[Rfam]
RNA sequence: CCGGGGUGAGGUAGUAGGUUGUAUGGUUUAGAGUCACACCCCCGGAGAUAACUGUACAGCCUCCUAGCUUUCCCCG
Numbered sequence: 001c002c003g004g005g006g007u008g009a010g011g012u013a014g015u016a017g018g019u020u021g022u023a024u025g026g027u028u029u030a031g032a033g034u035c036a037c038a039c040c041c042c043c044g045g046a047g048a049u050a051a052c053u054g055u056a057c058a059g060c061c062u063c064c065u066a067g068c069u070u071u072c073c074c075c076g
Stems, first nucleotide, its partner, number of pairs: 002076005008070003012066003016062012040047001
let-7 microRNA precursor family: a 76-nucleotide RNA sequence from Alligator mississippiensis. A search with the family's covariance model found it, with a score of 66 bits. Lineage of the source: Eukaryota > Eumetazoa > Archelosauria > Archosauria > Alligator. The family's consensus secondary structure was predicted with RNAalifold. From the family's description: This family represents the microRNAs (miRNA) let-7 and mir-98. let-7 was identified from a study of developmental timing in C. elegans, and was later shown to be part of a much larger class of non-coding RNAs termed miRNAs.